[Rfam]
RNA sequence: AUUCCAGAAGUGAUAUGGGUAUCCCAUAUCCCUCAGGCAGCAAGCGAAGGUGUCAUUGGCACCCGUGGCAUAGUCCCCCCGACCAUGCCACGAUCUUUUUUU
Numbered sequence: 001a002u003u004c005c006a007g008a009a010g011u012g013a014u015a016u017g018g019g020u021a022u023c024c025c026a027u028a029u030c031c032c033u034c035a036g037g038c039a040g041c042a043a044g045c046g047a048a049g050g051u052g053u054c055a056u057u058g059g060c061a062c063c064c065g066u067g068g069c070a071u072a073g074u075c076c077c078c079c080c081g082a083c084c085a086u087g088c089c090a091c092g093a094u095c096u097u098u099u100u101u102u
Stems, first nucleotide, its partner, number of pairs: 009033002012030007037045002049063006064092008073083003
The family of this 102-nucleotide RNA from Vibrio genomosp. F6 is "Translational regulator of tfoXVC".
The organism belongs to Vibrio genomosp. F6, within Bacteria.
The family's RNA type in Rfam is small RNA.
The literature on the family includes a 2011 paper in J Bacteriol by Yamamoto et al., "Identification of a chitin-induced small RNA that regulates translation of the tfoX gene, encoding a positive regulator of natural competence in Vibrio cholerae".